Rfam assigns this 79-nucleotide sequence from Cupriavidus sp. USMAA2-4 to the family "Fluoride riboswitch aptamer (crcB RNA motif)".
The family's consensus secondary structure is taken from published work.
RNA sequence: GUUGACACAGGAGAUGGUGUUCCUCCUCUUUUGAAGAAACCGCAGCCGAAGAUGCGCUGCUGAUGACGCCUACAGAACC
Numbered sequence: 001g002u003u004g005a006c007a008c009a010g011g012a013g014a015u016g017g018u019g020u021u022c023c024u025c026c027u028c029u030u031u032u033g034a035a036g037a038a039a040c041c042g043c044a045g046c047c048g049a050a051g052a053u054g055c056g057c058u059g060c061u062g063a064u065g066a067c068g069c070c071u072a073c074a075g076a077a078c079c
Stems, first nucleotide, its partner, number of pairs: 010026004016070006042060004